[Rfam]
RNA sequence: UUAGGUUAUUUUCAUUUUUUUCUGAAUUUUUUCUCGGAUUUUUGUUGUUGAAGGUUGAUGGAGAUGAUAUGAAGAUGAAGAUAACCUAACG
Numbered sequence: 001u002u003a004g005g006u007u008a009u010u011u012u013c014a015u016u017u018u019u020u021u022c023u024g025a026a027u028u029u030u031u032u033c034u035c036g037g038a039u040u041u042u043u044g045u046u047g048u049u050g051a052a053g054g055u056u057g058a059u060g061g062a063g064a065u066g067a068u069a070u071g072a073a074g075a076u077g078a079a080g081a082u083a084a085c086c087u088a089a090c091g
Base pairs, nucleotide, nucleotide: 005085006084007083008082009081010080011079012078013077014076015075016074017073018072019071037056038055039054040053041052042051043050

A member of the RNA family "MIR5298 microRNA precursor family" from Medicago truncatula, 91 nucleotides long. Rfam links the family to the GO terms miRNA-mediated post-transcriptional gene silencing and RISC complex.